About this RNA:
This 131-nucleotide sequence from Budvicia aquatica belongs to the Rfam family "Y RNA-like". Rfam 15.1 lists 124 matches to the family in 99 species. Taxonomically the source falls in Budvicia (Bacteria, Pseudomonadota, Gammaproteobacteria, Budviciaceae). The literature on the family includes a 2013 paper in Cell by Chen et al., "An RNA degradation machine sculpted by Ro autoantigen and noncoding RNA". By type it is a small RNA. In Deinococcus radiodurans Rsr is tethered via Y RNA to the exoribonuclease PNPase and channels single-stranded RNA into the PNPase cavity. Rsr and Y RNA enhance degradation of structured RNAs by PNPase. This role could be conserved, as Rsr and ncRNAs called YrlA and YrlB (Y RNA like) also associate with PNPase in an evolutionary distant bacterium Salmonella Typhimurium. A search with the family's covariance model found it, with a score of 76 bits.
[Rfam]
RNA sequence: AGGGCGAAUGCAGGUGGAACUACAUCAAAGGCAACGGUCGCGGGUUCAAUUCCCGCCGGAAUCUAACCAGGUUCCGUAGCUCAGUUGGAUAGAGCAUUGUGACUGUUUCACCGCUAAUUUGUCGCCCAACC
Numbered sequence: 001a002g003g004g005c006g007a008a009u010g011c012a013g014g015u016g017g018a019a020c021u022a023c024a025u026c027a028a029a030g031g032c033a034a035c036g037g038u039c040g041c042g043g044g045u046u047c048a049a050u051u052c053c054c055g056c057c058g059g060a061a062u063c064u065a066a067c068c069a070g071g072u073u074c075c076g077u078a079g080c081u082c083a084g085u086u087g088g089a090u091a092g093a094g095c096a097u098u099g100u101g102a103c104u105g106u107u108u109c110a111c112c113g114c115u116a117a118u119u120u121g122u123c124g125c126c127c128a129a130c131c
Stems, first nucleotide, its partner, number of pairs: 002127006013112007023099001033098002040056005057076008079095004